[Rfam]
RNA sequence: GCCCUGUGGUUACUGGACACUUGAUUUGUACAUUCAGUGCUUCAGUUUGUAGAAAUGGGCCGAAAAUGAUACUGUGAUUUACGCAUGGAAUCUGUGAUACGUGAGCAGCUUCCAUAGCCCUGUCACAGUUACAGAC
Numbered sequence: 001g002c003c004c005u006g007u008g009g010u011u012a013c014u015g016g017a018c019a020c021u022u023g024a025u026u027u028g029u030a031c032a033u034u035c036a037g038u039g040c041u042u043c044a045g046u047u048u049g050u051a052g053a054a055a056u057g058g059g060c061c062g063a064a065a066a067u068g069a070u071a072c073u074g075u076g077a078u079u080u081a082c083g084c085a086u087g088g089a090a091u092c093u094g095u096g097a098u099a100c101g102u103g104a105g106c107a108g109c110u111u112c113c114a115u116a117g118c119c120c121u122g123u124c125a126c127a128g129u130u131a132c133a134g135a136c
Stems, first nucleotide, its partner, number of pairs: 001060004007051002012046006019038002022036003072128001074126005083118002085115004090110001092108004
Dot-bracket structure: ((((..((...((((((.((.(((.........)))))..))))))...)).....))))...........(.(((((....((((((.(.((((.........)))).).)))).))...))))).)........